[Rfam]
RNA sequence: UCAUCACCAUCAUUUCCCUGAAUAGUCUUCGGGCAUUUGGUGCUGGAAGACAUUUGAUCUUCCGGUGAACGCAAUUAGAGAGAGCCCUCGGAAGAUCAACUUCCGAGGGUUUUUUCAU
Numbered sequence: 001u002c003a004u005c006a007c008c009a010u011c012a013u014u015u016c017c018c019u020g021a022a023u024a025g026u027c028u029u030c031g032g033g034c035a036u037u038u039g040g041u042g043c044u045g046g047a048a049g050a051c052a053u054u055u056g057a058u059c060u061u062c063c064g065g066u067g068a069a070c071g072c073a074a075u076u077a078g079a080g081a082g083a084g085c086c087c088u089c090g091g092a093a094g095a096u097c098a099a100c101u102u103c104c105g106a107g108g109g110u111u112u113u114u115u116c117a118u
Stems, first nucleotide, its partner, number of pairs: 008042003012037001014035001017033005043065008079115016
A member of the RNA family "Histidine operon leader" from Zophobihabitans entericus, 118 nucleotides long. The base pairs follow the family's consensus structure, which is taken from published work. By type it is a cis-regulatory leader. On this family, see Kolter and Yanofsky, Annu Rev Genet 1982: "Attenuation in amino acid biosynthetic operons".